Small nucleolar RNA SNORD103/SNORD85: an 80-nucleotide sequence from Xenopus tropicalis. A search with the family's covariance model found it, with a score of 72 bits.
[Rfam]
RNA sequence: UCUGGUAAUGAUGACACACUUGCCCUCACUGAGAAUGCCAUUCUAUAAUGAGAACACCUAUGUACUCAACCUGAACCAGA
Numbered sequence: 001u002c003u004g005g006u007a008a009u010g011a012u013g014a015c016a017c018a019c020u021u022g023c024c025c026u027c028a029c030u031g032a033g034a035a036u037g038c039c040a041u042u043c044u045a046u047a048a049u050g051a052g053a054a055c056a057c058c059u060a061u062g063u064a065c066u067c068a069a070c071c072u073g074a075a076c077c078a079g080a
Stems, first nucleotide, its partner, number of pairs: 001080006
Record summary:
For this family Rfam cites "Identification of 13 novel human modification guide RNAs" (Vitali et al., Nucleic Acids Res, 2003). Rfam links the family to the GO terms RNA processing and nucleolus. The family has 41 seed sequences and 1,349 matches in Rfam 15.1.